RNA: mir-85 microRNA precursor family
Organism: Caenorhabditis brenneri
RNA sequence: CCACGGUGCCCGACUUUUCAAUAUUUUGAAACCAGUUAUUCUGAGAAUGGUUACAAAGUAUUUGAAAAGCCGUGCACUGUAA
Numbered sequence: 001c002c003a004c005g006g007u008g009c010c011c012g013a014c015u016u017u018u019c020a021a022u023a024u025u026u027u028g029a030a031a032c033c034a035g036u037u038a039u040u041c042u043g044a045g046a047a048u049g050g051u052u053a054c055a056a057a058g059u060a061u062u063u064g065a066a067a068a069g070c071c072g073u074g075c076a077c078u079g080u081a082a
Base pairs, nucleotide, nucleotide: 003080004079005078006077007076008075009074011072012071014069015068016067017066018065019064020062021061022060023059024058025057026056027055028054030052031051032050033049034048